[Rfam]
RNA sequence: GGGCUUGUAGCUCAGUGGUAGUAGCGCUCGCUUUGCAUUGAUAAAGGUGCAGGUCUUCGGACUAGAUAUGCGAGAGGUCCGGGGUUCAAUCCCCCGUGAGUCCA
Numbered sequence: 001g002g003g004c005u006u007g008u009a010g011c012u013c014a015g016u017g018g019u020a021g022u023a024g025c026g027c028u029c030g031c032u033u034u035g036c037a038u039u040g041a042u043a044a045a046g047g048u049g050c051a052g053g054u055c056u057u058c059g060g061a062c063u064a065g066a067u068a069u070g071c072g073a074g075a076g077g078u079c080c081g082g083g084g085u086u087c088a089a090u091c092c093c094c095c096g097u098g099a100g101u102c103c104a
Base pairs, nucleotide, nucleotide: 001103002102003101004100005099006098007097010025011024012023027074028073029072030071031070080096081095082094083093084092
Rfam assigns this 104-nucleotide sequence from Aspergillus novofumigatus to the family "tRNA". By type it is a transfer RNA. NCBI's taxonomy places the organism under Eukaryota, Fungi, Ascomycota, saccharomyceta, Aspergillus novofumigatus.